RNA sequence: AAAUGUAGUAGACUUUAAGUAUACGUGUGGAACCGGAGAGUAUACUAAGUACACUACGUUUAU
Dot-bracket structure: (((((((((..(((...(((((((...............))))))).)))..)))))))))..
Numbered sequence: 001a002a003a004u005g006u007a008g009u010a011g012a013c014u015u016u017a018a019g020u021a022u023a024c025g026u027g028u029g030g031a032a033c034c035g036g037a038g039a040g041u042a043u044a045c046u047a048a049g050u051a052c053a054c055u056a057c058g059u060u061u062a063u
Stems, first nucleotide, its partner, number of pairs: 001061009012050003018046007